A member of the RNA family "Glycine riboswitch aptamer" from Antrihabitans stalagmiti, 103 nucleotides long.
Its family is annotated with glycine biosynthetic process in the Gene Ontology.
RNA sequence: CAUCGCCGCGCGGGAGAGUGUCGGUUAUCGAGCCAGGUAACCGAACGCCGAAGGAGCAGCACCUCCCCGUCAAUCUCUCAGGCAACCGGACCGCGCGGGCUUA
Numbered sequence: 001c002a003u004c005g006c007c008g009c010g011c012g013g014g015a016g017a018g019u020g021u022c023g024g025u026u027a028u029c030g031a032g033c034c035a036g037g038u039a040a041c042c043g044a045a046c047g048c049c050g051a052a053g054g055a056g057c058a059g060c061a062c063c064u065c066c067c068c069g070u071c072a073a074u075c076u077c078u079c080a081g082g083c084a085a086c087c088g089g090a091c092c093g094c095g096c097g098g099g100c101u102u103a
Base pairs, nucleotide, nucleotide: 006098007097008096009095010094011093012092013091021044022043023042024041025040026039027038028037047083048082049081050079051078054077055076056075061070062069